Shown here is a 176-nucleotide RNA sequence from Eggerthella lenta, a member of the family "FMN riboswitch aptamer (RFN element)".
A search with the family's covariance model found it, with a score of 94 bits.
Gene Ontology term of the family: FMN binding.
RNA sequence: AUUCUGUUUCAGGGCGAGGUGCAAUUCCUCACUGGCGGUAAUCCGGCCGCGAUGCCCCGCAUCGGCGAGCCGGGAGUCCGCGACCCUGCGAACGUCCCCGAUAGGGAGUGCGGUUGCAGGCUGAUUCCGGUGCGAUUCCGGAACCAACGGUAUAGUCCGGAUGGAAGAGGCAGAGA
Numbered sequence: 001a002u003u004c005u006g007u008u009u010c011a012g013g014g015c016g017a018g019g020u021g022c023a024a025u026u027c028c029u030c031a032c033u034g035g036c037g038g039u040a041a042u043c044c045g046g047c048c049g050c051g052a053u054g055c056c057c058c059g060c061a062u063c064g065g066c067g068a069g070c071c072g073g074g075a076g077u078c079c080g081c082g083a084c085c086c087u088g089c090g091a092a093c094g095u096c097c098c099c100g101a102u103a104g105g106g107a108g109u110g111c112g113g114u115u116g117c118a119g120g121c122u123g124a125u126u127c128c129g130g131u132g133c134g135a136u137u138c139c140g141g142a143a144c145c146a147a148c149g150g151u152a153u154a155g156u157c158c159g160g161a162u163g164g165a166a167g168a169g170g171c172a173g174a175g176a
Base pairs, nucleotide, nucleotide: 003174004173005172006171007170008169009168010167017029018028019027031156032155033146034145035081036080037079038078085120086119087118088117089116090115091114126142127141128140129139130138148159149158150157